SAM riboswitch aptamer (S box leader): a 103-nucleotide RNA from Bacillus sp. MUM 116. The family's consensus secondary structure is taken from published work. Lineage of the source: Bacteria > Bacillati > Bacilli > Caryophanales > Bacillus.
RNA sequence: CGCUUAUCUAGAGCGGCUGAGGGACCGGCCCGAUGAAGCCCGGCAACCUACAUUCGUAAGGUGCCAAUUCCUGCAAAAUGGAAUCCAUUUUGAAAGAUAAGGU
Numbered sequence: 001c002g003c004u005u006a007u008c009u010a011g012a013g014c015g016g017c018u019g020a021g022g023g024a025c026c027g028g029c030c031c032g033a034u035g036a037a038g039c040c041c042g043g044c045a046a047c048c049u050a051c052a053u054u055c056g057u058a059a060g061g062u063g064c065c066a067a068u069u070c071c072u073g074c075a076a077a078a079u080g081g082a083a084u085c086c087a088u089u090u091u092g093a094a095a096g097a098u099a100a101g102g103u
Stems, first nucleotide, its partner, number of pairs: 003101006013041001015040003021031003025073001027071002042065004047061002049058003069095001074092006